[Rfam]
RNA sequence: CGGUGGGAUAGGCUGGGGGGUUCGGCGUCCCCUGUGACCCGAAACCGUCGAUAUGCGGGAGCCGAAGCCGAGGGAAGGUUCGUGGAGCGGAAAGCUGGACUCUCCUCCCCCUUGCAGAGUCUCCGUCCCGUCGGGCCGGCGGUUACUGCUGGGCUUUCUGGAGGGAAUGUCCGCAGUAUUCGCCGGAGGAACCGACUCAGGCCCGGAAGGGAGCAGGUCAACUCCGGACGAUCGGCGCUGGCGGGGUAGCGGAGAGGAGAGGGUGAGGAGAGAGGCUUUCCGCAAAGCGAAUCGACCCGAGGCGUUCCCACCU
Numbered sequence: 001c002g003g004u005g006g007g008a009u010a011g012g013c014u015g016g017g018g019g020g021u022u023c024g025g026c027g028u029c030c031c032c033u034g035u036g037a038c039c040c041g042a043a044a045c046c047g048u049c050g051a052u053a054u055g056c057g058g059g060a061g062c063c064g065a066a067g068c069c070g071a072g073g074g075a076a077g078g079u080u081c082g083u084g085g086a087g088c089g090g091a092a093a094g095c096u097g098g099a100c101u102c103u104c105c106u107c108c109c110c111c112u113u114g115c116a117g118a119g120u121c122u123c124c125g126u127c128c129c130g131u132c133g134g135g136c137c138g139g140c141g142g143u144u145a146c147u148g149c150u151g152g153g154c155u156u157u158c159u160g161g162a163g164g165g166a167a168u169g170u171c172c173g174c175a176g177u178a179u180u181c182g183c184c185g186g187a188g189g190a191a192c193c194g195a196c197u198c199a200g201g202c203c204c205g206g207a208a209g210g211g212a213g214c215a216g217g218u219c220a221a222c223u224c225c226g227g228a229c230g231a232u233c234g235g236c237g238c239u240g241g242c243g244g245g246g247u248a249g250c251g252g253a254g255a256g257g258a259g260a261g262g263g264u265g266a267g268g269a270g271a272g273a274g275g276c277u278u279u280c281c282g283c284a285a286a287g288c289g290a291a292u293c294g295a296c297c298c299g300a301g302g303c304g305u306u307c308c309c310a311c312c313u
Stems, first nucleotide, its partner, number of pairs: 002312007011063004015033007038059004043054001067303003072298003077293005083286001087283010100272008109263005115257001120255007127245008135236004140230002142180001144178005150173005156167004183227006194219004202211003
RNA: Archaeal signal recognition particle RNA
Organism: Archaeoglobus sulfaticallidus